Small nucleolar RNA SNORA24: a 131-nucleotide sequence from Molossus molossus. The source organism's lineage runs through Eukaryota, Deuterostomia, Gnathostomata, Euteleostomi and Molossus. The family's consensus secondary structure was predicted with RNAfold. Rfam describes the family as follows. ACA24 is a member of the H/ACA class of snoRNA that guide the sites of modification of uridines to pseudouridines.
[Rfam]
RNA sequence: CACUAGGCUUCUCUGGGACCUGCAGGCUGUGGCGGUCUCCCUUCCUAGCCUGGGAAGAGCAUUUUCUUGUUUAUUGGCAAAGCUGUCACCAUUUAAUUGGUAUCAGUUUCUGACUUGCACAAGUAACAUUC
Numbered sequence: 001c002a003c004u005a006g007g008c009u010u011c012u013c014u015g016g017g018a019c020c021u022g023c024a025g026g027c028u029g030u031g032g033c034g035g036u037c038u039c040c041c042u043u044c045c046u047a048g049c050c051u052g053g054g055a056a057g058a059g060c061a062u063u064u065u066c067u068u069g070u071u072u073a074u075u076g077g078c079a080a081a082g083c084u085g086u087c088a089c090c091a092u093u094u095a096a097u098u099g100g101u102a103u104c105a106g107u108u109u110c111u112g113a114c115u116u117g118c119a120c121a122a123g124u125a126a127c128a129u130u131c
Base pairs, nucleotide, nucleotide: 003054004053006051007050015041016040017039018038020035021034022033023032068128069127070126071125074122075121076120077118078117079116080115083106084105085104088101089100090099091098

Notes:
Rfam links the family to the GO terms nucleolus and RNA processing.